[Rfam]
RNA: FMN riboswitch aptamer (RFN element)
RNA sequence: AAUAUUCUUCAGGGCAGGGUGAAAUUCCCGACCGGUGGUAAUAUUGUCAUUAGACAGUUAGCCCACGAGCCGAAAGGCUGAUUUGGUGUGAUUCCAAAGCCGACAGUACAGUCUGGAUGGGAGAAGAGUGCG
Numbered sequence: 001a002a003u004a005u006u007c008u009u010c011a012g013g014g015c016a017g018g019g020u021g022a023a024a025u026u027c028c029c030g031a032c033c034g035g036u037g038g039u040a041a042u043a044u045u046g047u048c049a050u051u052a053g054a055c056a057g058u059u060a061g062c063c064c065a066c067g068a069g070c071c072g073a074a075a076g077g078c079u080g081a082u083u084u085g086g087u088g089u090g091a092u093u094c095c096a097a098a099g100c101c102g103a104c105a106g107u108a109c110a111g112u113c114u115g116g117a118u119g120g121g122a123g124a125a126g127a128g129u130g131c132g
Base pairs, nucleotide, nucleotide: 003130004129005128006127007126008125009124010123017029018028019027031112032111033102034101035066036065037064038063061100062099069078070077071076082098083097084096085095086094104115105114106113